[Rfam]
RNA: Enterobacteria rnk leader
RNA sequence: UUGAGGAUUUACCCGAAUGUGAACUAAAUCACUUCAAAGACGGGGGAAGUCUCAGUAUCAUCAUGAGAGUUAAACCCUCGCCGCCAGACGGUGAGGGUUUUCUUUUGGG
Numbered sequence: 001u002u003g004a005g006g007a008u009u010u011a012c013c014c015g016a017a018u019g020u021g022a023a024c025u026a027a028a029u030c031a032c033u034u035c036a037a038a039g040a041c042g043g044g045g046g047a048a049g050u051c052u053c054a055g056u057a058u059c060a061u062c063a064u065g066a067g068a069g070u071u072a073a074a075c076c077c078u079c080g081c082c083g084c085c086a087g088a089c090g091g092u093g094a095g096g097g098u099u100u101u102c103u104u105u106u107g108g109g
Base pairs, nucleotide, nucleotide: 015035016034017033019032020031021030022029072100073099074098075097076096077095078094079093080092081091082090083089